[Rfam]
RNA: Plastid-psbA-4 3UTR RNA
RNA sequence: AAAUAAAGACAGAAAUACUCAAUAUCUUGCUAGAACAAGAUAUUGGGUAUUUUUGUCUUUU
Numbered sequence: 001a002a003a004u005a006a007a008g009a010c011a012g013a014a015a016u017a018c019u020c021a022a023u024a025u026c027u028u029g030c031u032a033g034a035a036c037a038a039g040a041u042a043u044u045g046g047g048u049a050u051u052u053u054u055g056u057c058u059u060u061u
Stems, first nucleotide, its partner, number of pairs: 006059012021044002024041006